[Rfam]
RNA sequence: GUCCUUGUGCUAGGGUUAGAGCUUCUGACAGUGAGGAGAAAUCCGAGUCGAAGCAAUUGCUGAUUGCAAAAAAUAUCCUACACGUAAUGUCCAUCGUAAGGUGUGACAUUCAAUUUCUGGCAAAGUACACUU
Numbered sequence: 001g002u003c004c005u006u007g008u009g010c011u012a013g014g015g016u017u018a019g020a021g022c023u024u025c026u027g028a029c030a031g032u033g034a035g036g037a038g039a040a041a042u043c044c045g046a047g048u049c050g051a052a053g054c055a056a057u058u059g060c061u062g063a064u065u066g067c068a069a070a071a072a073a074u075a076u077c078c079u080a081c082a083c084g085u086a087a088u089g090u091c092c093a094u095c096g097u098a099a100g101g102u103g104u105g106a107c108a109u110u111c112a113a114u115u116u117c118u119g120g121c122a123a124a125g126u127a128c129a130c131u132u
Stems, first nucleotide, its partner, number of pairs: 021054005027049003035044003084111001087109005092103004127132001

Shown here is a 132-nucleotide sequence from Cryptococcus deneoformans, a member of the family "U4 spliceosomal RNA". The base pairs follow the family's consensus structure, which is taken from published work. Lineage of the source: Eukaryota > Opisthokonta > Fungi > Cryptococcaceae > Cryptococcus deneoformans. The literature on the family includes a 1997 paper in Nucleic Acids Res by Zwieb, "The uRNA database". It is annotated as a spliceosomal small nuclear RNA. U4 small nuclear RNA (U4 snRNA) is a component of the major U2-dependent spliceosome.